[Rfam]
RNA sequence: GCCGUUCGGCUGCCUAAUCCGCGCGAGCGGAGCCGGGGACCCAACCUCUUCCUGGGGUGAAUCGGCAUACCUGCCGUAGGGCGACUUCCAGCCCGAACCCGUCAGCUAACCCGGUCGGCAGCAUGGAAGCAAAGG
Numbered sequence: 001g002c003c004g005u006u007c008g009g010c011u012g013c014c015u016a017a018u019c020c021g022c023g024c025g026a027g028c029g030g031a032g033c034c035g036g037g038g039a040c041c042c043a044a045c046c047u048c049u050u051c052c053u054g055g056g057g058u059g060a061a062u063c064g065g066c067a068u069a070c071c072u073g074c075c076g077u078a079g080g081g082c083g084a085c086u087u088c089c090a091g092c093c094c095g096a097a098c099c100c101g102u103c104a105g106c107u108a109a110c111c112c113g114g115u116c117g118g119c120a121g122c123a124u125g126g127a128a129g130c131a132a133a134g135g
Stems, first nucleotide, its partner, number of pairs: 011120004018031005032115006042054002055100003063076004079094004
A member of the RNA family "c-di-AMP riboswitch aptamer (ydaO/yuaA leader)" from Microbispora triticiradicis, 135 nucleotides long. The source organism's lineage runs through Bacteria, Bacillati, Actinomycetes, Streptosporangiaceae and Microbispora. Gene Ontology terms of the family: regulation of gene expression and cyclic-di-AMP binding.